[Rfam]
RNA sequence: UGAUGGCAAUGAUGAUUUUUACACUUAUUGUUCACCUGAUAACACAGAUAUGAAGGUGUUCAGUCACUACCUCUUCUGAUGCCAUCA
Numbered sequence: 001u002g003a004u005g006g007c008a009a010u011g012a013u014g015a016u017u018u019u020u021a022c023a024c025u026u027a028u029u030g031u032u033c034a035c036c037u038g039a040u041a042a043c044a045c046a047g048a049u050a051u052g053a054a055g056g057u058g059u060u061c062a063g064u065c066a067c068u069a070c071c072u073c074u075u076c077u078g079a080u081g082c083c084a085u086c087a
Base pairs, nucleotide, nucleotide: 002086003085004084005083006082007081
Small nucleolar RNA SNORD11B: an 87-nucleotide RNA from Prolemur simus.
The literature on the family includes a 2006 paper in Nucleic Acids Res by Yang et al., "snoSeeker: an advanced computational package for screening of guide and orphan snoRNA genes in the human genome".
The match comes from Rfam's covariance-model search (101 bits).
Rfam classes the family as a C/D-box small nucleolar RNA.